c-di-GMP-I-GGC riboswitch aptamer: a 90-nucleotide sequence.
Pairs were carried over by alignment from the consensus structure, which is taken from published work.
RNA sequence: UCUGAAAAAGGCAAACUUGUUGAAAAACAAGGACGCAAAGCUAUGGGCCUACCCAAUGUUCAACAUUGCAAGGCUGCCAAGCUGCCAGGC
Numbered sequence: 001u002c003u004g005a006a007a008a009a010g011g012c013a014a015a016c017u018u019g020u021u022g023a024a025a026a027a028c029a030a031g032g033a034c035g036c037a038a039a040g041c042u043a044u045g046g047g048c049c050u051a052c053c054c055a056a057u058g059u060u061c062a063a064c065a066u067u068g069c070a071a072g073g074c075u076g077c078c079a080a081g082c083u084g085c086c087a088g089g090c
Stems, first nucleotide, its partner, number of pairs: 003087002011036002016031006034076001039083004044079003047074003